[Rfam]
RNA sequence: UGGAAGUGAUGAGCUUUUAUCUGAGAAUUUUUAUGAUGAAAAUCAUUUCUCUAGAUAGUCAAGUACUGAUCCAG
Numbered sequence: 001u002g003g004a005a006g007u008g009a010u011g012a013g014c015u016u017u018u019a020u021c022u023g024a025g026a027a028u029u030u031u032u033a034u035g036a037u038g039a040a041a042a043u044c045a046u047u048u049c050u051c052u053a054g055a056u057a058g059u060c061a062a063g064u065a066c067u068g069a070u071c072c073a074g
Base pairs, nucleotide, nucleotide: 001073002072003071004070
Dot-bracket structure: ((((.................................................................)))).
Small nucleolar RNA SNORD20: a 74-nucleotide RNA sequence from Xenopus laevis. The match comes from Rfam's covariance-model search (63 bits). The family's RNA type in Rfam is C/D-box small nucleolar RNA. Pairs were carried over by alignment from the consensus structure. Its family is annotated with nucleolus and RNA processing in the Gene Ontology. A reference for the family is Nicoloso et al. (1994), "U20, a novel small nucleolar RNA, is encoded in an intron of the nucleolin gene in mammals", Mol Cell Biol. U20 is a C/D box small nucleolar RNA that is encoded in intron 11 of the nucleolin gene in human, mouse and rat.